[Rfam]
RNA sequence: GUUUUCCCAGAAGCGCCAUGUACCUGCAGAAAAAUGUUUGAAAUCUGAUAAAAGCAUCUGAGAUUGAUAAGGGCAGGUUAACGAGGAGGAGAGUGAUCGAAGAUUCGGCGGAUGCUCUCCCGUACAUUCCCAGUGCGAGAUAUACCGGCAAAUAUGCAGGUGACUGCAAAACAAAUACGGUAUAAGGGAGGAAA
Numbered sequence: 001g002u003u004u005u006c007c008c009a010g011a012a013g014c015g016c017c018a019u020g021u022a023c024c025u026g027c028a029g030a031a032a033a034a035u036g037u038u039u040g041a042a043a044u045c046u047g048a049u050a051a052a053a054g055c056a057u058c059u060g061a062g063a064u065u066g067a068u069a070a071g072g073g074c075a076g077g078u079u080a081a082c083g084a085g086g087a088g089g090a091g092a093g094u095g096a097u098c099g100a101a102g103a104u105u106c107g108g109c110g111g112a113u114g115c116u117c118u119c120c121c122g123u124a125c126a127u128u129c130c131c132a133g134u135g136c137g138a139g140a141u142a143u144a145c146c147g148g149c150a151a152a153u154a155u156g157c158a159g160g161u162g163a164c165u166g167c168a169a170a171a172c173a174a175a176u177a178c179g180g181u182a183u184a185a186g187g188g189a190g191g192a193a194a
Stems, first nucleotide, its partner, number of pairs: 022078006088120005097108004121137005141184007155168005
Shown here is a 194-nucleotide RNA sequence from Roseburia sp. OF03-24, a member of the family "glmS glucosamine-6-phosphate activated ribozyme aptamer".
Lineage of the source: Bacteria > Bacillati > Bacillota > Clostridia > Roseburia.
Rfam describes the family as follows. This entry contains a glucosamine-6-phosphate activated ribozyme that is found in the mRNA for GlmS. GlmS is an enzyme that uses fructose-6-phosphate and glutamine to generate glucosamine-6-phosphate.
The base pairs follow the family's consensus structure, which is taken from published work.
It scores 78 bits against the family's covariance model.